Source information
Rfam assigns this 115-nucleotide sequence from Marininema mesophilum to the family "SAM riboswitch aptamer (S box leader)".
RNA sequence: UUCUUAUCUAGAGCGGCGGAGGGACUGGCCCCAUGAUGCCGCGGCAACCCUGUUUCCCAGUAGGGGAGGGAGGGUGCUAAUUCCUGCAGGGUAUUUCCGCCCUGGAAGAUGAGAA
Numbered sequence: 001u002u003c004u005u006a007u008c009u010a011g012a013g014c015g016g017c018g019g020a021g022g023g024a025c026u027g028g029c030c031c032c033a034u035g036a037u038g039c040c041g042c043g044g045c046a047a048c049c050c051u052g053u054u055u056c057c058c059a060g061u062a063g064g065g066g067a068g069g070g071a072g073g074g075u076g077c078u079a080a081u082u083c084c085u086g087c088a089g090g091g092u093a094u095u096u097c098c099g100c101c102c103u104g105g106a107a108g109a110u111g112a113g114a115a
Base pairs, nucleotide, nucleotide: 001115002114003113004112005111006110007109008108013042014041015040016039017038021031022030023029025086027084028083043078044077045076046075048074049073050070051069053067054066055065056064082107087104088103089102090101091100092099

The organism belongs to Marininema, within Bacteria.